Rfam assigns this 102-nucleotide RNA from Cetobacterium somerae to the family "Purine riboswitch aptamer". It scores 87 bits against the family's covariance model.

[Rfam]
RNA sequence: AAAAACAAUAAAAAACAUACUCAUAUAUUUUUGGAAAUAUGGUCCAAUAGUUUCUACGUCUUUACCGUAAAUGAAGACACUAUGGGUAGAACUGACUGCAUU
Numbered sequence: 001a002a003a004a005a006c007a008a009u010a011a012a013a014a015a016c017a018u019a020c021u022c023a024u025a026u027a028u029u030u031u032u033g034g035a036a037a038u039a040u041g042g043u044c045c046a047a048u049a050g051u052u053u054c055u056a057c058g059u060c061u062u063u064a065c066c067g068u069a070a071a072u073g074a075a076g077a078c079a080c081u082a083u084g085g086g087u088a089g090a091a092c093u094g095a096c097u098g099c100a101u102u
Base pairs, nucleotide, nucleotide: 018088019087020086021085022084023083024082025081029049031047032046033045034044035043058078059077060076061075062074063073064072